[Rfam]
A member of the RNA family "Small nucleolar RNA SNORD47" from Austrofundulus limnaeus, 71 nucleotides long. The family's consensus secondary structure was predicted with ILM.
RNA sequence: AACCUGUGAAGAAAAGAUUCUGCCAAAUGAACCCUGAUUAUAACCCUUACCGUUCCAUUUUGUCUGAGGUU
Numbered sequence: 001a002a003c004c005u006g007u008g009a010a011g012a013a014a015a016g017a018u019u020c021u022g023c024c025a026a027a028u029g030a031a032c033c034c035u036g037a038u039u040a041u042a043a044c045c046c047u048u049a050c051c052g053u054u055c056c057a058u059u060u061u062g063u064c065u066g067a068g069g070u071u
Stems, first nucleotide, its partner, number of pairs: 001071004
The literature on the family includes a 2002 paper in Mol Cell Biol by Galardi et al., "Purified box C/D snoRNPs are able to reproduce site-specific 2'-O-methylation of target RNA in vitro". The match comes from Rfam's covariance-model search (66 bits).